This 157-nucleotide part of an RNA from Mesorhabditis spiculigera belongs to the Rfam family "Eukaryotic small subunit ribosomal RNA". Pairs were carried over by alignment from the consensus structure, which is taken from published work. It scores 1508 bits against the family's covariance model.
RNA sequence: CCGCCCGUCGCUACCCGGACUGAACCGUUUCGAGAAAUCCAGGGAAUUGGCCACAGGCCUCGUGUCUGCGGUUGAUGAACUGGCUUGAUCGCGACGGUUUGAACCGGGUAAAAGUCGUAACAAGGUACCGGUAGGUGAACCUGCCGGUGGAUCAAUA
Dot-bracket structure: (.(..((.(..(((((((.(.((((((((.(((..((.((((...(((((((.(((((.....))))).)))))))...)))).))..))).)))))))))..)))))))...).))...)..).((((((((((....))))))))))........